A member of the RNA family "Small Cajal body specific RNA 3" from Xenopus tropicalis, 136 nucleotides long.
It is annotated as a small Cajal body RNA.
scaRNAs are a specific class of small nuclear RNAs which localise to the Cajal bodies and guide the modification of RNA polymerase II transcribed spliceosomal RNAs U1, U2, U4, U5 and U12.
For this family Rfam cites "RNomics: an experimental approach that identifies 201 candidates for novel, small, non-messenger RNAs in mouse" (Huttenhofer et al., EMBO J, 2001).

RNA sequence: UAUGGAAGCUGCAAGAAUCUGUGUGUGCAGUGCAAGUGUCUGCCCGCCAUAGCAGCCUUCCUAUAGGAAUAUUGUGGAGAUCUCUGUCUGGCUCUGCAGAGUAUGGGCUUAGCCAGAUCGUUCCCCUCCAUACAUG
Dot-bracket structure: ...(((.(((((..........(((.((...((....))..)).)))....)))))..)))..............((((....(.(((.((((..(...........)..)))).))).).....)))).......
Pairs were carried over by alignment from the consensus structure, which was predicted with RNAalifold.